Rfam assigns this 70-nucleotide RNA sequence from Nannospalax galili to the family "mir-290 microRNA precursor family".
The source organism's lineage runs through Eukaryota, Opisthokonta, Dipnotetrapodomorpha, Amniota and Nannospalax.
RNA sequence: GUGGUACUCAAACUGUGGGGGCUCUUUUUGUGUUCUUUGAAGAAAAGGGCCACCAGUUUUUGAGUGUUAC
Number, nucleotide and partner (000 for none) at each position: 001g000002u000003g000004g067005u066006a065007c064008u063009c062010a061011a060012a059013c000014u000015g000016u055017g054018g053019g000020g051021g050022c049023u048024c047025u046026u000027u044028u043029u042030g000031u000032g000033u000034u000035c000036u000037u000038u000039g000040a000041a000042g029043a028044a027045a000046a025047g024048g023049g022050c021051c020052a000053c018054c017055a016056g000057u000058u000059u012060u011061u010062g009063a008064g007065u006066g005067u004068u000069a000070c000
Rfam links the family to the GO terms RISC complex and miRNA-mediated post-transcriptional gene silencing. The family is grouped with related families in Rfam's "mir-290 clan".